[Rfam]
RNA sequence: UCCUGCGUUCAGAAGUGGUCGUGGACUGCCUGUGUCCUGGUCAUGGGUAGUGCAGAGGGAGGAAUUGCUGAAAGUGUUUUCGCAUGUUUGGAGGGUCCACUCUGGCUCCUUCCAGACCCUGGAGCUUUCUCACG
Numbered sequence: 001u002c003c004u005g006c007g008u009u010c011a012g013a014a015g016u017g018g019u020c021g022u023g024g025a026c027u028g029c030c031u032g033u034g035u036c037c038u039g040g041u042c043a044u045g046g047g048u049a050g051u052g053c054a055g056a057g058g059g060a061g062g063a064a065u066u067g068c069u070g071a072a073a074g075u076g077u078u079u080u081c082g083c084a085u086g087u088u089u090g091g092a093g094g095g096u097c098c099a100c101u102c103u104g105g106c107u108c109c110u111u112c113c114a115g116a117c118c119c120u121g122g123a124g125c126u127u128u129c130u131c132a133c134g
Base pairs, nucleotide, nucleotide: 001057003055004054005053006052007051008050009049015044016043017042018041019040020039021038023037024036025035026034067131070129071128072127073126074125075124086117087116088115089114090113091111092110093109094108095107

Record summary
Small nucleolar RNA SNORA71: a 134-nucleotide sequence from Orycteropus afer. About the family: The members of this family belong to the H/ACA class of snoRNAs which bind a number of proteins (including dyskerin, Gar1p and Nop10p) to form snoRNP complexes. This class of snoRNAs are thought to guide the sites of modification of uridines to pseudouridines by forming direct base pairing interactions with substrate RNAs. This family includes U71 (SNORA71), ACA39 (SNORA39) and ACA60 (SNORA60). It scores 110 bits against the family's covariance model. Gene Ontology terms of the family: nucleolus and RNA processing. By type it is an H/ACA-box small nucleolar RNA.